[Rfam]
RNA sequence: UCGACACUCUGGAAAGCGGAUGCGCGACCGUCAGGGCCGCUCAUCCCACCGAAGGGGUAAGCCGGGCCGCCUCAGGCCGGGCGAAAGCUCUCAGGUUCCGUGACAGAGGGGGCCAG
Numbered sequence: 001u002c003g004a005c006a007c008u009c010u011g012g013a014a015a016g017c018g019g020a021u022g023c024g025c026g027a028c029c030g031u032c033a034g035g036g037c038c039g040c041u042c043a044u045c046c047c048a049c050c051g052a053a054g055g056g057g058u059a060a061g062c063c064g065g066g067c068c069g070c071c072u073c074a075g076g077c078c079g080g081g082c083g084a085a086a087g088c089u090c091u092c093a094g095g096u097u098c099c100g101u102g103a104c105a106g107a108g109g110g111g112g113c114c115a116g
Stems, first nucleotide, its partner, number of pairs: 005110001007108005018046004048096003051092002055090003061082002
The family of this 116-nucleotide sequence is "Glycine riboswitch aptamer". The match comes from Rfam's covariance-model search (42 bits).